[Rfam]
This 121-nucleotide sequence from Blautia hydrogenotrophica belongs to the Rfam family "DUF3800-I RNA". The family's RNA type in Rfam is small RNA. The base pairs follow the family's consensus structure, which is taken from published work.
RNA sequence: UAAUAUUACAGACAGAGAUGUACUGUAUACGCUUGGAAACUGAUACUUUGUAUUAAGCGUAUUUUUAAGUACGCCAGUCAAGUGGGAAAGCAGCUGAGAAAUCAGCUGUUUUUUUGUAUUU
Numbered sequence: 001u002a003a004u005a006u007u008a009c010a011g012a013c014a015g016a017g018a019u020g021u022a023c024u025g026u027a028u029a030c031g032c033u034u035g036g037a038a039a040c041u042g043a044u045a046c047u048u049u050g051u052a053u054u055a056a057g058c059g060u061a062u063u064u065u066u067a068a069g070u071a072c073g074c075c076a077g078u079c080a081a082g083u084g085g086g087a088a089a090g091c092a093g094c095u096g097a098g099a100a101a102u103c104a105g106c107u108g109u110u111u112u113u114u115u116g117u118a119u120u121u
Stems, first nucleotide, its partner, number of pairs: 007027005012021003030084006039078004043053003057074006088111010